RNA: U7 small nuclear RNA
RNA sequence: UAGUGUAACAGCUCUUUUAGAAUUUGUCUAGCAGGCUUUCCGGUCCGCACUGGAAAGCCCAA
Numbered sequence: 001u002a003g004u005g006u007a008a009c010a011g012c013u014c015u016u017u018u019a020g021a022a023u024u025u026g027u028c029u030a031g032c033a034g035g036c037u038u039u040c041c042g043g044u045c046c047g048c049a050c051u052g053g054a055a056a057g058c059c060c061a062a
Base pairs, nucleotide, nucleotide: 034059035058036057037056038055039054040053041052042051043050044049